Rfam assigns this 95-nucleotide RNA sequence from Actinomyces howellii to the family "Bacterial small signal recognition particle RNA". The match comes from Rfam's covariance-model search (61 bits).

[Rfam]
RNA sequence: GACGGCCCCUCGUGCGGCGUCAUCCAGUGAAUCCCCCAGGACCGGAAGGUAGCAAGGGUAAGCGGGCUCUGGCGGGUGCACGGGGGGUCCUGCCU
Numbered sequence: 001g002a003c004g005g006c007c008c009c010u011c012g013u014g015c016g017g018c019g020u021c022a023u024c025c026a027g028u029g030a031a032u033c034c035c036c037c038a039g040g041a042c043c044g045g046a047a048g049g050u051a052g053c054a055a056g057g058g059u060a061a062g063c064g065g066g067c068u069c070u071g072g073c074g075g076g077u078g079c080a081c082g083g084g085g086g087g088u089c090c091u092g093c094c095u
Base pairs, nucleotide, nucleotide: 004089005088006087007086008085009084010083011082012081013080014079015076018074019073020072021071022070024066025065027063028062033058034057035056041050042049043048

The signal recognition particle (SRP) is a universally conserved ribonucleoprotein involved in the co-translational targeting of proteins to membranes.